[Rfam]
RNA: MAT2A 3'UTR stem loop C
RNA sequence: GCUUUCUGAACAUCUGGUGUAGCUACAGAGAAACCACGUCCCUUCAGAGAGC
Numbered sequence: 001g002c003u004u005u006c007u008g009a010a011c012a013u014c015u016g017g018u019g020u021a022g023c024u025a026c027a028g029a030g031a032a033a034c035c036a037c038g039u040c041c042c043u044u045c046a047g048a049g050a051g052c
Stems, first nucleotide, its partner, number of pairs: 001052009012039002015036004019026002